[Rfam]
RNA sequence: GAAGCUGAUUUUGAAACUUAAAAGAAAUCACCAGACACCAUUCAAAAGCCAUCUUCCCUUUAGAAUGACUGCUGGGAUGCUAAGGUUUUUCAUAGCAUAUCAUUAUUAAAGGUGAUACAAAU
Numbered sequence: 001g002a003a004g005c006u007g008a009u010u011u012u013g014a015a016a017c018u019u020a021a022a023a024g025a026a027a028u029c030a031c032c033a034g035a036c037a038c039c040a041u042u043c044a045a046a047a048g049c050c051a052u053c054u055u056c057c058c059u060u061u062a063g064a065a066u067g068a069c070u071g072c073u074g075g076g077a078u079g080c081u082a083a084g085g086u087u088u089u090u091c092a093u094a095g096c097a098u099a100u101c102a103u104u105a106u107u108a109a110a111g112g113u114g115a116u117a118c119a120a121a122u
Base pairs, nucleotide, nucleotide: 006030007029008028009027010026011025055115056114057112058111059110060109061108062107063106070105071104073102074101075100077098078097079096080095081094082093
RNA: Small nucleolar RNA SNORA15